[Rfam]
RNA sequence: UUUUUAUACAGAGGCGCGGAGAGACAGGCUCUGCGAAGCGCCGGCAACCUCGGGAAAGUCCCGAACGGUGCCAAUUCCUGACCAUAUAAAAA
Numbered sequence: 001u002u003u004u005u006a007u008a009c010a011g012a013g014g015c016g017c018g019g020a021g022a023g024a025c026a027g028g029c030u031c032u033g034c035g036a037a038g039c040g041c042c043g044g045c046a047a048c049c050u051c052g053g054g055a056a057a058g059u060c061c062c063g064a065a066c067g068g069u070g071c072c073a074a075u076u077c078c079u080g081a082c083c084a085u086a087u088a089a090a091a092a
Stems, first nucleotide, its partner, number of pairs: 001092008013042005021031003025080004043072004048068002050064004076084001
SAM riboswitch aptamer (S box leader): a 92-nucleotide sequence from Hymenobacter sp. CRA2. The organism belongs to Hymenobacter, within Bacteria. It scores 80 bits against the family's covariance model.